Overview: The record is an 84-nucleotide sequence from Cottoperca gobio, which matches "Small nucleolar RNA SNORD11B" in Rfam. By type it is a C/D-box small nucleolar RNA. The base pairs follow the family's consensus structure, which was predicted with WAR. Its Rfam clan is "SNORD11 clan". Rfam links the family to the GO terms RNA processing and nucleolus. A reference for the family is Yang et al. (2006), "snoSeeker: an advanced computational package for screening of guide and orphan snoRNA genes in the human genome", Nucleic Acids Res.
RNA sequence: UGACAGUGGUGAUGAAGACGACAGUCGUCUUUCUCCUGAAACAAAUCAUGUGGGUUUUCAGUCACUACCUCUUCUGAACUGUCC
Numbered sequence: 001u002g003a004c005a006g007u008g009g010u011g012a013u014g015a016a017g018a019c020g021a022c023a024g025u026c027g028u029c030u031u032u033c034u035c036c037u038g039a040a041a042c043a044a045a046u047c048a049u050g051u052g053g054g055u056u057u058u059c060a061g062u063c064a065c066u067a068c069c070u071c072u073u074c075u076g077a078a079c080u081g082u083c084c
Stems, first nucleotide, its partner, number of pairs: 002083006